This 98-nucleotide sequence belongs to the Rfam family "Plastid-rps12 3UTR RNA".
The family's RNA type in Rfam is cis-regulatory element.
Pairs were carried over by alignment from the consensus structure, which was predicted with LocARNA.
For this family Rfam cites "Retrograde signaling in plants: A critical review focusing on the GUN pathway and beyond" (Richter et al., Plant Commun, 2023).
RNA sequence: GGUUUCCAUCGGUAGAAAUUCGAUCAGCUCAAUUUGAAAUUUCAAAUGAGAAAAAAUUUCCCAUUGAUAAUAAAGGAUUAUCAAUUAAGCAGGGAAAA
Number, nucleotide and partner (000 for none) at each position: 001g000002g000003u000004u000005u000006c000007c000008a000009u023010c022011g021012g020013u000014a000015g000016a000017a000018a000019u000020u012021c011022g010023a009024u000025c000026a000027g000028c000029u000030c000031a000032a000033u000034u000035u000036g000037a000038a000039a000040u000041u000042u000043c000044a000045a000046a000047u000048g000049a000050g000051a000052a000053a000054a000055a000056a000057u000058u000059u094060c093061c092062c000063a085064u084065u000066g082067a081068u080069a079070a078071u077072a000073a000074a000075g000076g000077a071078u070079u069080a068081u067082c066083a000084a064085u063086u000087a000088a000089g000090c000091a000092g061093g060094g059095a000096a000097a000098a000